[Rfam]
RNA: Small nucleolar RNA Z247
Organism: Panicum hallii
RNA sequence: CCACUUGAUGAUGAGGAAGUAGUCAGCCACAUCCUCACCGGACUUGAUGCCGACUACAAUCCAGUGGUGUGAGCCAUCCUCGCGCGUCCUGAACCAAUCACGGUGGGAGAGCUGUACACACAGCUUCUCACCUUCAAGC
Numbered sequence: 001c002c003a004c005u006u007g008a009u010g011a012u013g014a015g016g017a018a019g020u021a022g023u024c025a026g027c028c029a030c031a032u033c034c035u036c037a038c039c040g041g042a043c044u045u046g047a048u049g050c051c052g053a054c055u056a057c058a059a060u061c062c063a064g065u066g067g068u069g070u071g072a073g074c075c076a077u078c079c080u081c082g083c084g085c086g087u088c089c090u091g092a093a094c095c096a097a098u099c100a101c102g103g104u105g106g107g108a109g110a111g112c113u114g115u116a117c118a119c120a121c122a123g124c125u126u127c128u129c130a131c132c133u134u135c136a137a138g139c
Stems, first nucleotide, its partner, number of pairs: 004138005089107002092104001